[Rfam]
This 56-nucleotide RNA from Enterococcus florum belongs to the Rfam family "pemK RNA".
The family's consensus secondary structure is taken from published work.
RNA sequence: AUAAUGAUACUUCUUUAAAGAUCGGCGUAAAUAGCGGAGAGGUGAAAUUCCUAUGC
Numbered sequence: 001a002u003a004a005u006g007a008u009a010c011u012u013c014u015u016u017a018a019a020g021a022u023c024g025g026c027g028u029a030a031a032u033a034g035c036g037g038a039g040a041g042g043u044g045a046a047a048u049u050c051c052u053a054u055g056c
Base pairs, nucleotide, nucleotide: 012053013020014019022038023037025035026034040052041051042050
It scores 50 bits against the family's covariance model.